[Rfam]
RNA sequence: AGCUGGUCCAAAGGUAGUGAGUUAUCGCAAUUGUUCAGUCAGUAACAGAACAAACUCCUUGUUCUACUCUUUUCUCCCUUCUCAUUACUACACUUUACUAGUCUUAA
Numbered sequence: 001a002g003c004u005g006g007u008c009c010a011a012a013g014g015u016a017g018u019g020a021g022u023u024a025u026c027g028c029a030a031u032u033g034u035u036c037a038g039u040c041a042g043u044a045a046c047a048g049a050a051c052a053a054a055c056u057c058c059u060u061g062u063u064c065u066a067c068u069c070u071u072u073u074c075u076c077c078c079u080u081c082u083c084a085u086u087a088c089u090a091c092a093c094u095u096u097a098c099u100a101g102u103c104u105u106a107a
Stems, first nucleotide, its partner, number of pairs: 002102006010095002014091002016086006038068001041065002
Shown here is a 107-nucleotide RNA sequence from Theropithecus gelada, a member of the family "Y RNA". On this family, see Teunissen et al., Nucleic Acids Res 2000: "Conserved features of Y RNAs: a comparison of experimentally derived secondary structures".